[Rfam]
RNA sequence: AAGGGGAGCACCGGACCCUGGGCUGUGUCCCCCGUUGCCCUGGGCUCCGGGGCCUGCGCUGCUGGAAUUGGGCUCCCAGGGCCACCGCAACCCCCU
Numbered sequence: 001a002a003g004g005g006g007a008g009c010a011c012c013g014g015a016c017c018c019u020g021g022g023c024u025g026u027g028u029c030c031c032c033c034g035u036u037g038c039c040c041u042g043g044g045c046u047c048c049g050g051g052g053c054c055u056g057c058g059c060u061g062c063u064g065g066a067a068u069u070g071g072g073c074u075c076c077c078a079g080g081g082c083c084a085c086c087g088c089a090a091c092c093c094c095c096u
Stems, first nucleotide, its partner, number of pairs: 001096001003094004011087001013083002017080002020076003024072001026070002028066002032064001033061002036058003042054001044053003